F6 TB sRNA: a 57-nucleotide sequence from Nocardia stercoris. Rfam classes the family as a small RNA.
RNA sequence: CGGUUGGCUCCGUGCUGUUGCCAGACCCCCGACCCGGCAACAGUGCGGAGCCGUUCG
Numbered sequence: 001c002g003g004u005u006g007g008c009u010c011c012g013u014g015c016u017g018u019u020g021c022c023a024g025a026c027c028c029c030c031g032a033c034c035c036g037g038c039a040a041c042a043g044u045g046c047g048g049a050g051c052c053g054u055u056c057g
Stems, first nucleotide, its partner, number of pairs: 002056002005053001007051016